[Rfam]
RNA sequence: CGAAGAAAAGAGCAAACCAUGUGAAAGUGUGGGACGCAAAGCCAAGGGACUAACGCCGAAAGGUCAGGUCAGCCGGCUGCCUCG
Numbered sequence: 001c002g003a004a005g006a007a008a009a010g011a012g013c014a015a016a017c018c019a020u021g022u023g024a025a026a027g028u029g030u031g032g033g034a035c036g037c038a039a040a041g042c043c044a045a046g047g048g049a050c051u052a053a054c055g056c057c058g059a060a061a062g063g064u065c066a067g068g069u070c071a072g073c074c075g076g077c078u079g080c081c082u083c084g
Stems, first nucleotide, its partner, number of pairs: 012037002017032006040078004046074002048070003055064003
Shown here is an 84-nucleotide RNA sequence from Aminicella lysinilytica, a member of the family "c-di-GMP-I riboswitch aptamer". NCBI's taxonomy places the organism under Bacteria, Bacillota, Peptostreptococcales, Anaerovoracaceae, Aminicella.